A member of the RNA family "MIR828 microRNA precursor family" from Gossypium australe, 189 nucleotides long.

[Rfam]
RNA sequence: GUAAUGUUUCUUGCUCAAAUGAGUAUUCCAAUCACAGUUGCAUUUGCAUAUACAUAUUCACACUCAUAAAACCAAAAAACAAAACAAAACAUGGGUCUGUAUUAAUGUCCCAUGUUUUACCAUAUGUUUGGUUUUAUGAUGCAUUUGCUUCUGUUUUUCUGAGAUGCUCAUUUAAGCAAGCAAUGUUAA
Numbered sequence: 001g002u003a004a005u006g007u008u009u010c011u012u013g014c015u016c017a018a019a020u021g022a023g024u025a026u027u028c029c030a031a032u033c034a035c036a037g038u039u040g041c042a043u044u045u046g047c048a049u050a051u052a053c054a055u056a057u058u059c060a061c062a063c064u065c066a067u068a069a070a071a072c073c074a075a076a077a078a079a080c081a082a083a084a085c086a087a088a089a090c091a092u093g094g095g096u097c098u099g100u101a102u103u104a105a106u107g108u109c110c111c112a113u114g115u116u117u118u119a120c121c122a123u124a125u126g127u128u129u130g131g132u133u134u135u136a137u138g139a140u141g142c143a144u145u146u147g148c149u150u151c152u153g154u155u156u157u158u159c160u161g162a163g164a165u166g167c168u169c170a171u172u173u174a175a176g177c178a179a180g181c182a183a184u185g186u187u188a189a
Stems, first nucleotide, its partner, number of pairs: 004186005010180006017173011029161002

The match comes from Rfam's covariance-model search (88 bits). Taxonomically the source falls in Gossypium (Eukaryota, Streptophyta, Streptophytina, eudicotyledons).